RNA sequence: GCCGGGCGUUGUGGCGUGCGCCUGUAAUCCAGUUACUUGGAGGCUUGGAUUGGAGGACGGCGUGAGAUUGGGAGCCAUGUGGCGCUCUGCCCUAUGUCGAUCGGGCGUCAGCGCUAAGCUCGGCGUCAAUAUGGACAUCCCGGGGGAGCUUGGGGUGGCCAGGUUGUCUAAGGAGGAACGAACCGGGCGAGGCCCGAAAGGGAGCAGCCAAAAGUUCCCACGUUGAUCAGUAGCGGGAUAGCGCCUGUGAAUAGGCGGAGUGUCACAGCCCAGUCAAUAUCGCAGGACCCAAUCCUUU
Numbered sequence: 001g002c003c004g005g006g007c008g009u010u011g012u013g014g015c016g017u018g019c020g021c022c023u024g025u026a027a028u029c030c031a032g033u034u035a036c037u038u039g040g041a042g043g044c045u046u047g048g049a050u051u052g053g054a055g056g057a058c059g060g061c062g063u064g065a066g067a068u069u070g071g072g073a074g075c076c077a078u079g080u081g082g083c084g085c086u087c088u089g090c091c092c093u094a095u096g097u098c099g100a101u102c103g104g105g106c107g108u109c110a111g112c113g114c115u116a117a118g119c120u121c122g123g124c125g126u127c128a129a130u131a132u133g134g135a136c137a138u139c140c141c142g143g144g145g146g147a148g149c150u151u152g153g154g155g156u157g158g159c160c161a162g163g164u165u166g167u168c169u170a171a172g173g174a175g176g177a178a179c180g181a182a183c184c185g186g187g188c189g190a191g192g193c194c195c196g197a198a199a200g201g202g203a204g205c206a207g208c209c210a211a212a213a214g215u216u217c218c219c220a221c222g223u224u225g226a227u228c229a230g231u232a233g234c235g236g237g238a239u240a241g242c243g244c245c246u247g248u249g250a251a252u253a254g255g256c257g258g259a260g261u262g263u264c265a266c267a268g269c270c271c272a273g274u275c276a277a278u279a280u281c282g283c284a285g286g287a288c289c290c291a292a293u294c295c296u297u298u
Stems, first nucleotide, its partner, number of pairs: 001044003004023006028041003047295007058285001060283003066275007078267012091255005097249001102247007109237001112235005118228001120226007127166004132161003136157009167173002175218005186209003193202003
Rfam assigns this 298-nucleotide RNA sequence from Ciona robusta to the family "Metazoan signal recognition particle RNA". Pairs were carried over by alignment from the consensus structure, which is taken from published work. Its family is annotated with SRP-dependent cotranslational protein targeting to membrane, signal sequence recognition and signal recognition particle, endoplasmic reticulum targeting in the Gene Ontology. Rfam's curators write: The signal recognition particle (SRP) is a universally conserved ribonucleoprotein. It is involved in the co-translational targeting of proteins to membranes. The eukaryotic SRP consists of a 300-nucleotide 7S RNA and six proteins: SRPs 72, 68, 54, 19, 14, and 9. Archaeal SRP consists of a 7S RNA and homologues of the eukaryotic SRP19 and SRP54 proteins. Clan: SRP clan. By type it is a non-coding RNA gene.